[Rfam]
RNA sequence: UGGCUCCAGCUUCAUAGGAAGGCUCUUGUCUGUCAAGCAGUGGAGUUACAGACAAGAGCCUUGCUCAGGCCAGCCC
Numbered sequence: 001u002g003g004c005u006c007c008a009g010c011u012u013c014a015u016a017g018g019a020a021g022g023c024u025c026u027u028g029u030c031u032g033u034c035a036a037g038c039a040g041u042g043g044a045g046u047u048a049c050a051g052a053c054a055a056g057a058g059c060c061u062u063g064c065u066c067a068g069g070c071c072a073g074c075c076c
Base pairs, nucleotide, nucleotide: 002075003074004073005072009070010069011068012067016065017064019062020061021060022059023058024057025056026055027054028053029052030051031050032049033048035046
mir-600 microRNA precursor family: a 76-nucleotide RNA from Pongo pygmaeus. Gene Ontology terms of the family: RISC complex and miRNA-mediated post-transcriptional gene silencing. For this family Rfam cites "Identification of novel homologous microRNA genes in the rhesus macaque genome" (Yue et al., BMC Genomics, 2008). Rfam's curators put it in the seed alignment.